[Rfam]
RNA: mir-34 microRNA precursor family
RNA sequence: UCCUGGGUGGCAGUGUGGUUAGCUGGUUGUCUGGUAGAGAGAACAACCGCUAUCAGCACUGCCGUCCUGGU
Number, nucleotide and partner (000 for none) at each position: 001u000002c070003c069004u000005g067006g066007g000008u000009g063010g062011c000012a060013g059014u058015g057016u056017g000018g054019u000020u052021a051022g050023c000024u049025g048026g047027u046028u045029g044030u043031c000032u000033g000034g000035u000036a000037g000038a000039g000040a000041g000042a000043a030044c029045a028046a027047c026048c025049g024050c022051u021052a020053u000054c018055a000056g016057c015058a014059c013060u012061g000062c010063c009064g000065u000066c006067c005068u000069g003070g002071u000